The record is a 75-nucleotide RNA from Streptomyces rubradiris, which matches "ASpks TB sRNA" in Rfam. A reference for the family is Arnvig and Young (2009), "Identification of small RNAs in Mycobacterium tuberculosis", Mol Microbiol.
RNA sequence: UUUGAGCGAUCCCAGCCACAGGGGCUGGCCGGCGUCGCGGUCCCGGCCGUAGGUGGCCAGCAACGCCUCGGCCUC
Numbered sequence: 001u002u003u004g005a006g007c008g009a010u011c012c013c014a015g016c017c018a019c020a021g022g023g024g025c026u027g028g029c030c031g032g033c034g035u036c037g038c039g040g041u042c043c044c045g046g047c048c049g050u051a052g053g054u055g056g057c058c059a060g061c062a063a064c065g066c067c068u069c070g071g072c073c074u075c
Base pairs, nucleotide, nucleotide: 014026015025016024017023033071038065039064043060045058047056048055049054